[Rfam]
RNA: Saccharopolyspora sRNA 350
Organism: Streptomyces longwoodensis
RNA sequence: CGGGCGGUGUACUCCCAGAUGGCGUCGGCGUCGAGCAGUGCCUGGUCGCCGAAGUGGGCGCCGUCGGCGAGGACGCCGAGCACCUGGUCGUCGCCGUAGGGGCCGGUGCCGACCUUCUCGACCCGGCCGUGGGCCAGCAGGUACACCUCGUCGGUCGGGCUGCCGAAGGAGGCGAUGACCUCGCCGGGGCCGAUCUCCCGCUGCCGGCAGCGCUGGGCGAGCUCGCCGAGGACGUCGAUGUCGUCGUAGGAGCGCAGUGCGGGGAGUUCGCCCAGCUCCGCCGGGAUCACCUCCACGCGGUCCCCGGUCUUCACGAAGGUGAUGCGGCCGUCGCCGACCGCGAACGUCAGGCGCCGGUUCACCCGGUAGGUGCCGCCGUGGACGUCCACCCAGGGCAGCAUCCGCAGCAGCCAGCGGGAGCUGAUCUCCUGCAUCUGCGGUACGGACUUGGUGGUGGUGGCCAGGUUCCGCGCGGCCGCGGUGCCGAGGCUCUGCUGCGG
Numbered sequence: 001c002g003g004g005c006g007g008u009g010u011a012c013u014c015c016c017a018g019a020u021g022g023c024g025u026c027g028g029c030g031u032c033g034a035g036c037a038g039u040g041c042c043u044g045g046u047c048g049c050c051g052a053a054g055u056g057g058g059c060g061c062c063g064u065c066g067g068c069g070a071g072g073a074c075g076c077c078g079a080g081c082a083c084c085u086g087g088u089c090g091u092c093g094c095c096g097u098a099g100g101g102g103c104c105g106g107u108g109c110c111g112a113c114c115u116u117c118u119c120g121a122c123c124c125g126g127c128c129g130u131g132g133g134c135c136a137g138c139a140g141g142u143a144c145a146c147c148u149c150g151u152c153g154g155u156c157g158g159g160c161u162g163c164c165g166a167a168g169g170a171g172g173c174g175a176u177g178a179c180c181u182c183g184c185c186g187g188g189g190c191c192g193a194u195c196u197c198c199c200g201c202u203g204c205c206g207g208c209a210g211c212g213c214u215g216g217g218c219g220a221g222c223u224c225g226c227c228g229a230g231g232a233c234g235u236c237g238a239u240g241u242c243g244u245c246g247u248a249g250g251a252g253c254g255c256a257g258u259g260c261g262g263g264g265a266g267u268u269c270g271c272c273c274a275g276c277u278c279c280g281c282c283g284g285g286a287u288c289a290c291c292u293c294c295a296c297g298c299g300g301u302c303c304c305c306g307g308u309c310u311u312c313a314c315g316a317a318g319g320u321g322a323u324g325c326g327g328c329c330g331u332c333g334c335c336g337a338c339c340g341c342g343a344a345c346g347u348c349a350g351g352c353g354c355c356g357g358u359u360c361a362c363c364c365g366g367u368a369g370g371u372g373c374c375g376c377c378g379u380g381g382a383c384g385u386c387c388a389c390c391c392a393g394g395g396c397a398g399c400a401u402c403c404g405c406a407g408c409a410g411c412c413a414g415c416g417g418g419a420g421c422u423g424a425u426c427u428c429c430u431g432c433a434u435c436u437g438c439g440g441u442a443c444g445g446a447c448u449u450g451g452u453g454g455u456g457g458u459g460g461c462c463a464g465g466u467u468c469c470g471c472g473c474g475g476c477c478g479c480g481g482u483g484c485c486g487a488g489g490c491u492c493u494g495c496u497g498c499g500g
Base pairs, nucleotide, nucleotide: 006390007389008388009387011385012384015381016380018328021325025322026321027320029318031316032315037311038310040308041307042306045305048302050300054233055232059228060227062225063224065111066110067109068108075103077102082097083096086095087094088093117221118220119219120218122217123216126213127212130209133205135203136202137201140198141197143196149192150191155188156187158185159184160183161178234296235295237293240290241289243287244286245285250282254278256277257276258275259271260270261269329342330341331340351379352378353377355375356374357373360372361371362370363369391431392430393429394428395427397425399423400422403418405416407415437476438475440473443470444469445468446467447465448464449463450462451461452460484499487496488495